[Rfam]
Small nucleolar RNA SNORA17: a 129-nucleotide RNA from Mus spicilegus. A search with the family's covariance model found it, with a score of 89 bits. Gene Ontology terms of the family: RNA processing and nucleolus. NCBI's taxonomy places the organism under Eukaryota, Eumetazoa, Deuterostomia, Glires, Mus. On this family, see Ofengand and Bakin, J Mol Biol 1997: "Mapping to nucleotide resolution of pseudouridine residues in large subunit ribosomal RNAs from representative eukaryotes, prokaryotes, archaebacteria, mitochondria and chloroplasts". Rfam describes the family as follows. snoRNA ACA 17 belongs to the H/ACA family of snoRNAs and is predicted to guide pseudouridylation of the 28S rRNA at positions U4659 and U4598. It shares the same host gene together with ACA43. NB This family has a high threshold value to exclude a large number of closely related sequences that do not appear to have conserved H and ACA boxes, and may be pseudogenes. It is annotated as an H/ACA-box small nucleolar RNA. The family's consensus secondary structure was predicted with RNAalifold.

RNA sequence: CCUGUCCUAGAGGUGUUGUAUCGGUGGCUGCUGUGUCCAUGUGUAUCAGUAGGUAGCAGAGAGAAGAGGGGCUAGGUCUAUGUUCAGUGUUUUGACCUGUGGACAUGGAAUGAUUAGAAGUCCAACACU
Numbered sequence: 001c002c003u004g005u006c007c008u009a010g011a012g013g014u015g016u017u018g019u020a021u022c023g024g025u026g027g028c029u030g031c032u033g034u035g036u037c038c039a040u041g042u043g044u045a046u047c048a049g050u051a052g053g054u055a056g057c058a059g060a061g062a063g064a065a066g067a068g069g070g071g072c073u074a075g076g077u078c079u080a081u082g083u084u085c086a087g088u089g090u091u092u093u094g095a096c097c098u099g100u101g102g103a104c105a106u107g108g109a110a111u112g113a114u115u116a117g118a119a120g121u122c123c124a125a126c127a128c129u
Base pairs, nucleotide, nucleotide: 002059003058004057005056006053007052008051009050012047013046014045018044019043020042021041024038026037027036028035066126069123070122071121072120073119081112082111084109085108087106088105089104090103091102092101